[Rfam]
RNA sequence: CCGGGAAGGGGCACGGUCGCGCCCGGGGAGACCCGGGUGAGGAAAGUCCGGGCACCGCAGGGCAGGAUGCCAGCUAACGGCUGGGCGGCGAGCGUACGGCGGUCAGGCGAGGCGGAAGCCGAGCCGAGCCGACAUGCGCGAAGCCGACGGAAAGUGCCACAGAAACCAGACCGCCUUUCCGGACGGCGCCCGCGUGGGCGUACGCGGAAGGGUAAGGGUGAAACGGUGCGGUAAGAGCGCACCAGUCCCCGGGGAGACCCGGGGAGCUGGUAAACCCCAUCCGGUGCAAGGCCCGACAGUGGAGGAGAGGCGGCCCGCCUCGAUGAUCCCCAGGAUGGCCGCUCGAGGCGCGCGGUGACGUGCGUCCCAGAUAGAUGAUCGUGACCCCGCGCAAGCGGGGGACAGAACCCGGCUUACCACCUUCCCGGCCCG
Number, nucleotide and partner (000 for none) at each position: 001c428002c427003g426004g425005g424006a423007a422008g421009g420010g000011g417012c383013a382014c381015g380016g379017u378018c377019g000020c039021g038022c037023c036024c035025g034026g033027g032028g000029a000030g000031a000032c027033c026034c025035g024036g023037g022038u021039g020040a000041g000042g000043a000044a415045a414046g413047u000048c412049c411050g410051g409052g408053c286054a285055c284056c283057g000058c000059a000060g320061g319062g318063c317064a000065g282066g281067a280068u279069g278070c084071c083072a082073g081074c080075u000076a000077a000078c000079g000080g074081c073082u072083g071084g070085g148086c146087g145088g144089c143090g000091a000092g000093c000094g000095u000096a000097c000098g000099g000100c000101g000102g000103u000104c000105a000106g000107g000108c000109g000110a000111g000112g000113c000114g000115g000116a000117a000118g000119c000120c000121g000122a000123g000124c000125c000126g000127a000128g000129c000130c000131g000132a000133c000134a000135u000136g000137c000138g000139c000140g000141a000142a000143g089144c088145c087146g086147a000148c085149g277150g276151a000152a000153a000154g275155u274156g271157c270158c269159a000160c000161a000162g000163a000164a000165a000166c000167c000168a000169g000170a000171c217172c216173g213174c212175c211176u210177u209178u208179c207180c206181g205182g000183a000184c000185g000186g000187c000188g000189c000190c000191c000192g000193c000194g000195u000196g000197g000198g000199c000200g000201u000202a000203c000204g000205c181206g180207g179208a178209a177210g176211g175212g174213u173214a000215a000216g172217g171218g000219u000220g000221a000222a000223a000224c000225g243226g242227u241228g240229c239230g238231g000232u000233a000234a000235g000236a000237g000238c230239g229240c228241a227242c226243c225244a000245g267246u265247c264248c263249c262250c261251g260252g259253g258254g000255a000256g000257a000258c253259c252260c251261g250262g249263g248264g247265a246266g000267c245268u000269g158270g157271u156272a000273a000274a155275c154276c150277c149278c069279a068280u067281c066282c065283g056284g055285u054286g053287c000288a000289a000290g340291g339292c338293c337294c000295g000296a000297c000298a000299g000300u332301g331302g330303a000304g328305g327306a000307g000308a000309g000310g000311c325312g324313g000314c322315c000316c000317g063318c062319c061320u060321c000322g314323a000324u312325g311326a000327u305328c304329c000330c302331c301332a300333g000334g000335a000336u000337g293338g292339c291340c290341g000342c000343u000344c000345g000346a000347g366348g365349c364350g363351c362352g361353c360354g359355g000356u000357g000358a000359c354360g353361u352362g351363c350364g349365u348366c347367c000368c000369a000370g000371a000372u000373a000374g000375a000376u000377g018378a017379u016380c015381g014382u013383g012384a000385c000386c000387c000388c000389g000390c000391g000392c000393a000394a000395g000396c000397g000398g000399g000400g000401g000402a000403c000404a000405g000406a000407a000408c052409c051410c050411g049412g048413c046414u045415u044416a000417c011418c000419a000420c009421c008422u007423u006424c005425c004426c003427g002428g001429c000430c000431c000432g000
The family of this 432-nucleotide sequence from Deinobacterium chartae is "Bacterial RNase P class A".
Pairs were carried over by alignment from the consensus structure, which is taken from published work.
It scores 238 bits against the family's covariance model.